[Rfam]
RNA sequence: UCCUUAGUGGUGUAGAGGUAACAUCCGAGUCUCUCACACUCGUGCCCGGGGUUCGAUUCCCCGCUAGGGAG
Number, nucleotide and partner (000 for none) at each position: 001u070002c069003c068004u067005u066006a065007g064008u000009g000010g024011u023012g022013u021014a000015g000016a000017g000018g000019u000020a000021a013022c012023a011024u010025c000026c042027g041028a040029g039030u038031c000032u000033c000034u000035c000036a000037c000038a030039c029040u028041c027042g026043u000044g000045c000046c000047c063048g062049g061050g060051g059052u000053u000054c000055g000056a000057u000058u000059c051060c050061c049062c048063g047064c007065u006066a005067g004068g003069g002070a001071g000
Overview: Rfam assigns this 71-nucleotide sequence from Trichophyton benhamiae to the family "tRNA". Transfer RNA (tRNA) molecules are approximately 80 nucleotides in length. Rfam classes the family as a transfer RNA. The source organism's lineage runs through Eukaryota, Dikarya, Ascomycota, Eurotiomycetes and Trichophyton benhamiae.